[Rfam]
Nucleotides: 089
Base pairs, nucleotide, nucleotide: 009081010080011079012078013077019031020030021029022028033070034069035068036066040064042062047057048056
Number, partner (000 for none) and nucleotide at each position: 001000c002000g003000a004000c005000a006000u007000g008000a009081g010080g011079u012078g013077g014000g015000a016000g017000a018000g019031c020030u021029g022028c023000g024000a025000u026000c027000c028022g029021c030020a031019g032000c033070g034069c035068c036066g037000u038000a039000g040064g041000u042062g043000c044000a045000a046000u047057u048056c049000c050000c051000u052000c053000c054000c055000c056048g057047g058000g059000a060000a061000a062042c063000u064040c065000u066036c067000a068035g069034g070033c071000c072000c073000a074000g075000u076000a077013c078012c079011a080010c081009c082000g083000a084000u085000u086000g087000c088000a089000g
The family of this 89-nucleotide RNA from Brevibacterium sanguinis is "Glycine riboswitch aptamer". The match comes from Rfam's covariance-model search (46 bits). Rfam describes the family as follows. This family represents the bacterial glycine riboswitch. Gene Ontology term of the family: glycine biosynthetic process.